[Rfam]
RNA sequence: GGUCACGAGAGGCAGCGUCAAGCCCUGGCUUGCUGUCCGGCAACCCUCCUCCGCGGUGGGGUGCUCCAGGUGAUGACCCGGCGGCACCGCCGGUGCCGCAAGCGCGAAUC
Numbered sequence: 001g002g003u004c005a006c007g008a009g010a011g012g013c014a015g016c017g018u019c020a021a022g023c024c025c026u027g028g029c030u031u032g033c034u035g036u037c038c039g040g041c042a043a044c045c046c047u048c049c050u051c052c053g054c055g056g057u058g059g060g061g062u063g064c065u066c067c068a069g070g071u072g073a074u075g076a077c078c079c080g081g082c083g084g085c086a087c088c089g090c091c092g093g094u095g096c097c098g099c100a101a102g103c104g105c106g107a108a109u110c
Base pairs, nucleotide, nucleotide: 001078002077003076004075009038011037012036013035014034015033016032021030022029039065040064041063044061045060046059048056049055081099082098083097084096085095086094087093088092
A member of the RNA family "SAM (S-adenosyl methionine) riboswitch aptamer" from Flexivirga endophytica, 110 nucleotides long. The source organism's lineage runs through Bacteria, Bacillati, Actinomycetota, Micrococcales and Flexivirga. From the family's description: SAM-IV is a mRNA element that regulates gene expression via direct sensing of S-adenosylmethionine (SAM or AdoMet). SAM-IV riboswitches share conserved nucleotide positions with the previously described SAM-I riboswitches sequence analysis and molecular recognition experiments suggest that SAM-I and SAM-IV riboswitches share similar ligand binding sites, but have different scaffolds. Clan: SAM clan. The literature on the family includes a 2008 paper in RNA by Weinberg et al., "The aptamer core of SAM-IV riboswitches mimics the ligand-binding site of SAM-I riboswitches".